[Rfam]
RNA sequence: UGACUUUGGAAAUCAAGUGUUGGUGAAGCCUGUGGAGUGACUUGCGGUGACCCAUACUUGGUUUCAAGGGUCU
Numbered sequence: 001u002g003a004c005u006u007u008g009g010a011a012a013u014c015a016a017g018u019g020u021u022g023g024u025g026a027a028g029c030c031u032g033u034g035g036a037g038u039g040a041c042u043u044g045c046g047g048u049g050a051c052c053c054a055u056a057c058u059u060g061g062u063u064u065c066a067a068g069g070g071u072c073u
Stems, first nucleotide, its partner, number of pairs: 002072006009065006016058002022052003028048003

This 73-nucleotide RNA from Sakesphorus luctuosus belongs to the Rfam family "mir-551 microRNA precursor family". NCBI's taxonomy places the organism under Eukaryota, Gnathostomata, Coelurosauria, Australaves, Sakesphorus. The match comes from Rfam's covariance-model search (58 bits). For this family Rfam cites "Conservation of small RNA pathways in platypus" (Murchison et al., Genome Res, 2008). The base pairs follow the family's consensus structure, which was predicted with RNAalifold.